[Rfam]
RNA sequence: GCGGAGACGAAAGUUUCCGUUCACUCCUCACACCACACUCCGCCUGAACAUCGUUCGGGCGGUU
Numbered sequence: 001g002c003g004g005a006g007a008c009g010a011a012a013g014u015u016u017c018c019g020u021u022c023a024c025u026c027c028u029c030a031c032a033c034c035a036c037a038c039u040c041c042g043c044c045u046g047a048a049c050a051u052c053g054u055u056c057g058g059g060c061g062g063u064u
Stems, first nucleotide, its partner, number of pairs: 001020008041061007